MIR394 microRNA precursor family: a 117-nucleotide RNA sequence from Musa balbisiana.
The base pairs follow the family's consensus structure, which was predicted with WAR.
Gene Ontology terms of the family: RISC complex and miRNA-mediated post-transcriptional gene silencing.
The literature on the family includes a 2004 paper in Mol Cell by Jones-Rhoades and Bartel, "Computational identification of plant microRNAs and their targets, including a stress-induced miRNA".
The match comes from Rfam's covariance-model search (66 bits).
Taxonomically the source falls in Musa (Eukaryota, Streptophyta, Euphyllophyta, Mesangiospermae).
Nucleotides: 117
Base pairs, nucleotide, nucleotide: 011107015103016102017101018100019099020098024094025093026092027091028090029089030088031087032086033085034084
Number, partner (000 for none) and nucleotide at each position: 001000c002000u003000c004000a005000c006000a007000u008000a009000g010000g011107u012000u013000a014000u015103u016102u017101g018100g019099c020098a021000u022000u023000c024094u025093g026092u027091c028090c029089a030088c031087c032086u033085c034084c035000a036000a037000g038000u039000a040000c041000u042000g043000a044000u045000c046000c047000c048000u049000c050000u051000c052000u053000u054000a055000u056000a057000c058000a059000u060000c061000c062000c063000c064000a065000a066000g067000g068000a069000g070000a071000a072000c073000a074000a075000c076000a077000a078000c079000u080000c081000g082000a083000u084034g085033g086032a087031g088030g089029u090028g091027g092026g093025c094024a095000u096000c097000c098020u099019g100018c101017c102016a103015a104000c105000u106000g107011a108000c109000c110000u111000a112000u113000g114000u115000u116000g117000g